[Rfam]
Shown here is a 115-nucleotide RNA sequence, a member of the family "Flavobacterium-1 RNA". It is annotated as a small RNA. The base pairs follow the family's consensus structure, which is taken from published work.
RNA sequence: AAGCUCAAGGGCGUCGAUAUUCGCUUCGCGCGUUUCCCUCUACGUAAGCCGUGACCGCAAGGUAGCAUCCUGGAGUUUGGCCCGCUGUGAGUACGUGCACAGAAAGCAGCGGGUU
Numbered sequence: 001a002a003g004c005u006c007a008a009g010g011g012c013g014u015c016g017a018u019a020u021u022c023g024c025u026u027c028g029c030g031c032g033u034u035u036c037c038c039u040c041u042a043c044g045u046a047a048g049c050c051g052u053g054a055c056c057g058c059a060a061g062g063u064a065g066c067a068u069c070c071u072g073g074a075g076u077u078u079g080g081c082c083c084g085c086u087g088u089g090a091g092u093a094c095g096u097g098c099a100c101a102g103a104a105a106g107c108a109g110c111g112g113g114u115u
Base pairs, nucleotide, nucleotide: 001078002077003076004075005074006073008071009070010069011045012044013043014042016040017039022032023031024030048066049065055062056061080114081113082112083111084110085109086108087107088106095100